[Rfam]
RNA: Bacterial RNase P class A
Organism: Rhodobacteraceae bacterium EhC02
RNA sequence: GCGGAGGGCUGGAUGAUCGCGGGUCGGGGUCUAUCGAUCCGAGGAAAGUCCGGACUCCACAAGGCAAUGGUGCCGGGUAACGCCCGGCUGGGGAAACCCAAGGGAAAGCGCCACAGAGAACAGACCGCCGCGUUCCGGCGCGGUAAGGGUGAAACGGUGGGGUAAGAGCCCACCGCGGGACUGGCAACAGGACCGGCACGGCAAGCCCCACCAGGAGCAAUGCCGAAUAGGGACCUCGCGCGGGUUGAUCGGUUCGCCGAUAUCACCGCAGGGCAGGCUUUGACCCAGAGGUCCGGGUUGGCAGCUAGAGGGGUCGCGGUAACGCGAUCUCAAGAUGAAUGAUCAUCCAGAGGGGGAAACCCCUUGGACAAAAUCCGGCUUACAGGCCCUCCGCGCGC
Numbered sequence: 001g002c003g004g005a006g007g008g009c010u011g012g013a014u015g016a017u018c019g020c021g022g023g024u025c026g027g028g029g030u031c032u033a034u035c036g037a038u039c040c041g042a043g044g045a046a047a048g049u050c051c052g053g054a055c056u057c058c059a060c061a062a063g064g065c066a067a068u069g070g071u072g073c074c075g076g077g078u079a080a081c082g083c084c085c086g087g088c089u090g091g092g093g094a095a096a097c098c099c100a101a102g103g104g105a106a107a108g109c110g111c112c113a114c115a116g117a118g119a120a121c122a123g124a125c126c127g128c129c130g131c132g133u134u135c136c137g138g139c140g141c142g143g144u145a146a147g148g149g150u151g152a153a154a155c156g157g158u159g160g161g162g163u164a165a166g167a168g169c170c171c172a173c174c175g176c177g178g179g180a181c182u183g184g185c186a187a188c189a190g191g192a193c194c195g196g197c198a199c200g201g202c203a204a205g206c207c208c209c210a211c212c213a214g215g216a217g218c219a220a221u222g223c224c225g226a227a228u229a230g231g232g233a234c235c236u237c238g239c240g241c242g243g244g245u246u247g248a249u250c251g252g253u254u255c256g257c258c259g260a261u262a263u264c265a266c267c268g269c270a271g272g273g274c275a276g277g278c279u280u281u282g283a284c285c286c287a288g289a290g291g292u293c294c295g296g297g298u299u300g301g302c303a304g305c306u307a308g309a310g311g312g313g314u315c316g317c318g319g320u321a322a323c324g325c326g327a328u329c330u331c332a333a334g335a336u337g338a339a340u341g342a343u344c345a346u347c348c349a350g351a352g353g354g355g356g357a358a359a360c361c362c363c364u365u366g367g368a369c370a371a372a373a374u375c376c377g378g379c380u381u382a383c384a385g386g387c388c389c390u391c392c393g394c395g396c397g398c
Base pairs, nucleotide, nucleotide: 001394002393003392004391005390006389007388008387009386010385011383012347013346014345015344016343017342018341020041021040022039023038024037025036026035027034046381047380048379050378051377052376053375054374055217056216057215058214063280064279068213069212070211071210072209073087074086075085076084077083088102089100090099091098092097103208104207108206109205110202111201112200125148126147127144128143129142130141131140132139133138156174157173158172159171160170161169175197176195177194178193181190182189183188221303222302223301224300231294232293233292234291235290236289271285272284274282275281311330312329313328314327315326316325317324318323
Dot-bracket structure: ((((((((((((((((((.((((((((......))))))))....[[[.[[[[[((((....[[...((((((((((.....)))))(((((....)))).)((...(((((............(((((((((....)))))))..)).......((((((.......))))))((((..(((....)))..))).)..)))..)))))))))))))...((((......((((((..................................((.((...]])).))...)))))).....)))).......((((((((....))))))))..........)))))))..........................]]]]]]]].).))))))))))....